Description: This 104-nucleotide sequence from Nyctereutes procyonoides belongs to the Rfam family "mir-8834 microRNA precursor family". Rfam 15.1 lists 13,926 matches to the family in 17 species.
RNA sequence: AGGAGCAACCCCAGUGGUCGAUGGCCAGCUCUGGAAACCUGGAUUCAGCUCCCACAGGAACUACGGGGCUCUCAGUCUGCAGGGCCUGGAGGCUCCGGGGCGGG
Numbered sequence: 001a002g003g004a005g006c007a008a009c010c011c012c013a014g015u016g017g018u019c020g021a022u023g024g025c026c027a028g029c030u031c032u033g034g035a036a037a038c039c040u041g042g043a044u045u046c047a048g049c050u051c052c053c054a055c056a057g058g059a060a061c062u063a064c065g066g067g068g069c070u071c072u073c074a075g076u077c078u079g080c081a082g083g084g085c086c087u088g089g090a091g092g093c094u095c096c097g098g099g100g101c102g103g104g
Stems, first nucleotide, its partner, number of pairs: 002096005009084003016077003020073001023072002027070007035062001038058004